[Rfam]
Source information: Shown here is a 182-nucleotide RNA, a member of the family "Bacteroidales-1 6S-Bacteroidales RNA suggested". It is one of the family's seed sequences. Rfam classes the family as a small RNA. For this family Rfam cites "A high-resolution transcriptome map identifies small RNA regulation of metabolism in the gut microbe Bacteroides thetaiotaomicron" (Ryan et al., Nat Commun, 2020). About the family: Bacteroidales-1 was first reported in a comparative genomics-based approach of genome and metagenome sequences from Weinberg et al. 2010 In a high-resolution transcriptome map study of Bacteroides thetaiotaomicron, Ryan et al. 2020 report this sRNA as 6S RNA homologue of Bacteroides, in the study they obtain evidence of small product RNAs (pRNAs) related to 6S function.
RNA sequence: AGCCGCACAUGUGCGAUUGGGAAACUCAUUCAGUUUAUUUUAUUUCCGAGACAAAGCUCUUGUCGUCAAUGGCGAGCCGAAACCUUCGAGGGCAUGCUUCACAACGGCGGUAUUAACAAGGAUGGCAAAGAACUCAAUUCCUGUCAUAACGAGUUUGUCCUAUUCUACGUGCGGUUUCUUUA
Number, nucleotide and partner (000 for none) at each position: 001a000002g000003c000004c000005g000006c000007a000008c000009a000010u000011g000012u000013g000014c000015g000016a000017u000018u000019g000020g000021g000022a000023a000024a000025c000026u000027c000028a000029u000030u000031c000032a000033g000034u000035u000036u000037a000038u000039u000040u000041u000042a000043u000044u000045u000046c000047c000048g000049a000050g000051a000052c000053a000054a000055a000056g000057c130058u129059c000060u128061u127062g126063u125064c124065g123066u122067c121068a000069a000070u118071g117072g000073c000074g000075a000076g000077c110078c109079g108080a000081a000082a000083c091084c090085u000086u000087c000088g000089a000090g084091g083092g000093c000094a000095u103096g102097c000098u000099u000100c000101a000102c096103a095104a000105c000106g000107g000108c079109g078110g077111u000112a000113u000114u000115a000116a000117c071118a070119a000120g000121g067122a066123u065124g064125g063126c062127a061128a060129a058130g057131a000132a000133c000134u000135c000136a000137a000138u000139u000140c000141c000142u000143g000144u000145c000146a000147u000148a000149a000150c000151g000152a000153g000154u000155u000156u000157g000158u000159c000160c000161u000162a000163u000164u000165c000166u000167a000168c000169g000170u000171g000172c000173g000174g000175u000176u000177u000178c000179u000180u000181u000182a000